[Rfam]
RNA sequence: UGAGACCUCUGGGUGACCGCGGUUAUCCACAUGGGGAGAAAUCUCCAGAAUAACUGAGGAACUUCCGGGCUCCAUAGAGCACGAUGGCGGAUAACGUCCGCCCAGGGCAACCUGAGAGAUAGCGCAACAGAGAAUAGACCGCCUUAUAUGGCGUAGCUGUAUAAGGUAAGGGUGAAACGGUGGUGUAAGAGACCACCGGACGACUGGUAACAGAAGUCGCAUGGCAAGCCUCAUCGGGAGCAAGGUCAAGUAGAAUAUCUAAGCUGCUCGCUUGUUUGGUAUUCGGGUAGGCUGCUAGAGCUUAAUAGCAAUAUUAAGUCGAGAUGGAUGGUCACCCCUUGUAUGUCUUUUACAUACGGGGACAGAACCCGGGGUAUAUGAGGUCUCACACU
Numbered sequence: 001u002g003a004g005a006c007c008u009c010u011g012g013g014u015g016a017c018c019g020c021g022g023u024u025a026u027c028c029a030c031a032u033g034g035g036g037a038g039a040a041a042u043c044u045c046c047a048g049a050a051u052a053a054c055u056g057a058g059g060a061a062c063u064u065c066c067g068g069g070c071u072c073c074a075u076a077g078a079g080c081a082c083g084a085u086g087g088c089g090g091a092u093a094a095c096g097u098c099c100g101c102c103c104a105g106g107g108c109a110a111c112c113u114g115a116g117a118g119a120u121a122g123c124g125c126a127a128c129a130g131a132g133a134a135u136a137g138a139c140c141g142c143c144u145u146a147u148a149u150g151g152c153g154u155a156g157c158u159g160u161a162u163a164a165g166g167u168a169a170g171g172g173u174g175a176a177a178c179g180g181u182g183g184u185g186u187a188a189g190a191g192a193c194c195a196c197c198g199g200a201c202g203a204c205u206g207g208u209a210a211c212a213g214a215a216g217u218c219g220c221a222u223g224g225c226a227a228g229c230c231u232c233a234u235c236g237g238g239a240g241c242a243a244g245g246u247c248a249a250g251u252a253g254a255a256u257a258u259c260u261a262a263g264c265u266g267c268u269c270g271c272u273u274g275u276u277u278g279g280u281a282u283u284c285g286g287g288u289a290g291g292c293u294g295c296u297a298g299a300g301c302u303u304a305a306u307a308g309c310a311a312u313a314u315u316a317a318g319u320c321g322a323g324a325u326g327g328a329u330g331g332u333c334a335c336c337c338c339u340u341g342u343a344u345g346u347c348u349u350u351u352a353c354a355u356a357c358g359g360g361g362a363c364a365g366a367a368c369c370c371g372g373g374g375u376a377u378a379u380g381a382g383g384u385c386u387c388a389c390a391c392u
Stems, first nucleotide, its partner, number of pairs: 001388009011377001012336007020056007028048001061375003065372005070240004077269004082236005087101005102116001103114004117231002122229002124225002139171002141167011179197006198220001199218003204213003244293004253284006260274005300319008